[Rfam]
RNA: mir-9195 microRNA precursor family
Organism: Myotis davidii
RNA sequence: GGAGGCCCUCUGCAGCCAGGGUGGAACGCUUGCCUCGUCGCCAUGGCAAUGAAGCAAGCAUUCUGCCAGGCUGCUCACGCUGCCUGC
Numbered sequence: 001g002g003a004g005g006c007c008c009u010c011u012g013c014a015g016c017c018a019g020g021g022u023g024g025a026a027c028g029c030u031u032g033c034c035u036c037g038u039c040g041c042c043a044u045g046g047c048a049a050u051g052a053a054g055c056a057a058g059c060a061u062u063c064u065g066c067c068a069g070g071c072u073g074c075u076c077a078c079g080c081u082g083c084c085u086g087c
Stems, first nucleotide, its partner, number of pairs: 004084003012074006020067007028059006037050002040047002